[Rfam]
RNA sequence: GUAUUUGCAGGCCGCAGUUGGUGUAAGCGAAUAUGGCUUUUGUACAUAUUGCACUCUCUACGGCCUGUAAAUAU
Numbered sequence: 001g002u003a004u005u006u007g008c009a010g011g012c013c014g015c016a017g018u019u020g021g022u023g024u025a026a027g028c029g030a031a032u033a034u035g036g037c038u039u040u041u042g043u044a045c046a047u048a049u050u051g052c053a054c055u056c057u058c059u060a061c062g063g064c065c066u067g068u069a070a071a072u073a074u
Base pairs, nucleotide, nucleotide: 001074002073003072004071005070006069007068010065011064013062014061016059017058020055021054023052030050031049032048033047034046035045

This 74-nucleotide RNA from Scaptodrosophila lebanonensis belongs to the Rfam family "mir-310 microRNA precursor family". Its family is annotated with cellular response to nitric oxide, response to nicotine and compound eye morphogenesis in the Gene Ontology.